[Rfam]
RNA: mir-252 microRNA precursor family
Organism: Saccoglossus kowalevskii
RNA sequence: AUCCAAUACUAAGUACUAGUGCCGCAGGAGUCGUAUAUUUGAGUAACCCUGUCGUACUUGUGCUUAACAUAGGAU
Numbered sequence: 001a002u003c004c005a006a007u008a009c010u011a012a013g014u015a016c017u018a019g020u021g022c023c024g025c026a027g028g029a030g031u032c033g034u035a036u037a038u039u040u041g042a043g044u045a046a047c048c049c050u051g052u053c054g055u056a057c058u059u060g061u062g063c064u065u066a067a068c069a070u071a072g073g074a075u
Stems, first nucleotide, its partner, number of pairs: 001075004006070002010066007018058002024052005